[Rfam]
RNA sequence: GGAGCAAUUUCUGGAGAGUCCGCAUUUAGCGGCGCCGAAGGGUUCACAAUCUCAGGCAAAAGGACAGGAACUAGUAA
Dot-bracket structure: .....(.((((((......((((.....)))).(((((..(((.....))))).))).......)))))).).....
The record is a 77-nucleotide RNA from Ureibacillus manganicus, which matches "Glycine riboswitch aptamer" in Rfam.